RNA sequence: UUAAUCAUUCAUUUAAAUCACACACAUUUCGUCACGUUUUCCGGGGUGCUUCCGUGCAGGUCACGAAAGUCGGAAAUACGGGGAAUGUGGAGGCCUAAC
Numbered sequence: 001u002u003a004a005u006c007a008u009u010c011a012u013u014u015a016a017a018u019c020a021c022a023c024a025c026a027u028u029u030c031g032u033c034a035c036g037u038u039u040u041c042c043g044g045g046g047u048g049c050u051u052c053c054g055u056g057c058a059g060g061u062c063a064c065g066a067a068a069g070u071c072g073g074a075a076a077u078a079c080g081g082g083g084a085a086u087g088u089g090g091a092g093g094c095c096u097a098a099c
Base pairs, nucleotide, nucleotide: 023089024088025087026086027085028084029083030082035080036079037078039076040074041073042072043071048070049069050068051067
This 99-nucleotide RNA sequence from Vibrio aerogenes belongs to the Rfam family "t44 RNA". Rfam's curators write: This family consists of a number of bacterial RNA genes of between 135 and 170 bases in length. NCBI's taxonomy places the organism under Bacteria, Pseudomonadati, Vibrionaceae, Vibrio, Vibrio aerogenes. The literature on the family includes a 2002 paper in Nucleic Acids Res by Tjaden et al., "Transcriptome analysis of Escherichia coli using high-density oligonucleotide probe arrays".